[Rfam]
RNA sequence: UCAUCCGCAGGGCAAACCGGUCGAAAGGCCGGGACGCAAAGCUUCCGGCCUAACAGGAACGACGUUCCUCAUGGUAGCGGGGCCGCCUUC
Number, nucleotide and partner (000 for none) at each position: 001u000002c000003a000004u000005c000006c000007g000008c000009a000010g000011g000012g037013c036014a000015a000016a000017c032018c031019g030020g029021u028022c027023g000024a000025a000026a000027g022028g021029c020030c019031g018032g017033g000034a000035c000036g013037c012038a000039a000040a000041g083042c082043u081044u000045c080046c079047g078048g075049c074050c073051u000052a000053a000054c000055a069056g068057g067058a066059a065060c064061g000062a000063c000064g060065u059066u058067c057068c056069u055070c000071a000072u000073g050074g049075u048076a000077g000078c047079g046080g045081g043082g042083c041084c000085g000086c000087c000088u000089u000090c000
The record is a 90-nucleotide RNA from Noviherbaspirillum denitrificans, which matches "c-di-GMP-I riboswitch aptamer" in Rfam. GEMM was predicted in a large-scale screen for bacterial structured RNA regulatory elements. A search with the family's covariance model found it, with a score of 70 bits. Gene Ontology term of the family: cyclic-di-GMP binding. Lineage of the source: Bacteria > Pseudomonadati > Pseudomonadota > Oxalobacteraceae > Noviherbaspirillum.